[Rfam]
RNA: Group II catalytic intron D1-D4-2
RNA sequence: GAGGGUGGGCCCCUCGGAACCGCCCUACAGGGGGAGGUUUCAAACCAGCGUAUGCGGCUUUAGUUAAGAGCUUUGGUCGUGAGCAAUGCGUUAAAAGUCUGUUAAUAAACAGGCGGGU
Number, nucleotide and partner (000 for none) at each position: 001g015002a014003g013004g012005g011006u000007g000008g000009g000010c000011c005012c004013c003014u002015c001016g041017g040018a039019a038020c037021c036022g000023c034024c033025c032026u031027a000028c000029a000030g000031g026032g025033g024034g023035a000036g021037g020038u019039u018040u017041c016042a000043a000044a000045c000046c117047a000048g091049c090050g089051u088052a087053u086054g080055c079056g000057g077058c076059u075060u000061u000062a072063g071064u070065u000066a000067a000068g000069a000070g064071c063072u062073u000074u000075g059076g058077u057078c000079g055080u054081g000082a000083g000084c000085a000086a053087u052088g051089c050090g049091u048092u000093a000094a000095a000096a000097g114098u113099c112100u111101g110102u109103u000104a000105a000106u000107a000108a000109a102110c101111a100112g099113g098114c097115g000116g000117g046118u000